[Rfam]
RNA sequence: UGUCGGGUAGCUUAUCAGACUAGUGUUGGCUGUUGUACCACAUGGCAACAACAGUCUGUAAGCUGGCUGACA
Numbered sequence: 001u002g003u004c005g006g007g008u009a010g011c012u013u014a015u016c017a018g019a020c021u022a023g024u025g026u027u028g029g030c031u032g033u034u035g036u037a038c039c040a041c042a043u044g045g046c047a048a049c050a051a052c053a054g055u056c057u058g059u060a061a062g063c064u065g066g067c068u069g070a071c072a
Base pairs, nucleotide, nucleotide: 008065009064010063011062012061013060014059015058018056019055020054021053024050025049026048027047028046030044

The family of this 72-nucleotide sequence from Scleropages formosus is "mir-21 microRNA precursor family". The base pairs follow the family's consensus structure, which was predicted with RNAalifold. On this family, see Xu et al., FEBS Lett 2006: "Identification of microRNAs from different tissues of chicken embryo and adult chicken". The source organism's lineage runs through Eukaryota, Neopterygii, Teleostei, Osteoglossocephalai and Scleropages.